[Rfam]
RNA: Small Cajal body-specific RNA 7
Organism: Burhinus bistriatus
RNA sequence: UGGAAGUGAUGAAAUAGAGAUAAUUGGAUGUCUGUUUGAAUGGAGUGUGUGUGAUAAAUGGAACUUAAACCGAGGUGGGUGGGGCGUGGGGAAUGUGUGUGUGCGCAUGUAUAGAAGAGGCUUCAAACGGGGGCACUGAUAAUGCAGUGCUGAUUCCGGAGUGCAUCUGAGGCAUGUUGUUAAGUUCUGGGGUGCCACAUUACAACACUGCCGAUGAUUAAAGCCCAAAACAAGCCCACCAAGACAAGCCUAGGCAUCCUAAAUCUCUAACAGGUUCCUUAAUUAAAGUGAUCCUGUGAUCUGAUCCGA
Numbered sequence: 001u002g003g004a005a006g007u008g009a010u011g012a013a014a015u016a017g018a019g020a021u022a023a024u025u026g027g028a029u030g031u032c033u034g035u036u037u038g039a040a041u042g043g044a045g046u047g048u049g050u051g052u053g054a055u056a057a058a059u060g061g062a063a064c065u066u067a068a069a070c071c072g073a074g075g076u077g078g079g080u081g082g083g084g085c086g087u088g089g090g091g092a093a094u095g096u097g098u099g100u101g102u103g104c105g106c107a108u109g110u111a112u113a114g115a116a117g118a119g120g121c122u123u124c125a126a127a128c129g130g131g132g133g134c135a136c137u138g139a140u141a142a143u144g145c146a147g148u149g150c151u152g153a154u155u156c157c158g159g160a161g162u163g164c165a166u167c168u169g170a171g172g173c174a175u176g177u178u179g180u181u182a183a184g185u186u187c188u189g190g191g192g193u194g195c196c197a198c199a200u201u202a203c204a205a206c207a208c209u210g211c212c213g214a215u216g217a218u219u220a221a222a223g224c225c226c227a228a229a230a231c232a233a234g235c236c237c238a239c240c241a242a243g244a245c246a247a248g249c250c251u252a253g254g255c256a257u258c259c260u261a262a263a264u265c266u267c268u269a270a271c272a273g274g275u276u277c278c279u280u281a282a283u284u285a286a287a288g289u290g291a292u293c294c295u296g297u298g299a300u301c302u303g304a305u306c307c308g309a
Base pairs, nucleotide, nucleotide: 001308002307003306004305175207176206177205178204179203180202182200184195185194187192